[Rfam]
RNA sequence: AAUUACCAUAGAAAACUACCUAAGACUCAGGUGGCGCAAGCCUUAAUAUCCUGCCGAGGCUAGAUGCUGAACAAAUAGGGCAUCAUGUCAUCGGACAUGAUGUCUUUUAAAUUUUAGG
Numbered sequence: 001a002a003u004u005a006c007c008a009u010a011g012a013a014a015a016c017u018a019c020c021u022a023a024g025a026c027u028c029a030g031g032u033g034g035c036g037c038a039a040g041c042c043u044u045a046a047u048a049u050c051c052u053g054c055c056g057a058g059g060c061u062a063g064a065u066g067c068u069g070a071a072c073a074a075a076u077a078g079g080g081c082a083u084c085a086u087g088u089c090a091u092c093g094g095a096c097a098u099g100a101u102g103u104c105u106u107u108u109a110a111a112u113u114u115u116a117g118g
Base pairs, nucleotide, nucleotide: 028053029052030051031050033042034041035040080103081102082101083100084099085098086097087096088095089094
Shown here is a 118-nucleotide RNA from Bombilactobacillus mellis, a member of the family "Ribosomal protein L10 leader".
By type it is a cis-regulatory leader.
Pairs were carried over by alignment from the consensus structure, which was predicted with CMfinder.
This family is a putative r-protein leader autoregulatory structure found in B. subtilis and other low-GC Gram-positive bacteria. It is located in the 5' untranslated regions of mRNAs encoding ribosomal proteins L10 and L12 (rplJ-rplL). A Rho-independent transcription terminator structure that is probably involved in regulation is included at the 3' end.
The match comes from Rfam's covariance-model search (64 bits).
The organism belongs to Bombilactobacillus, within Bacteria.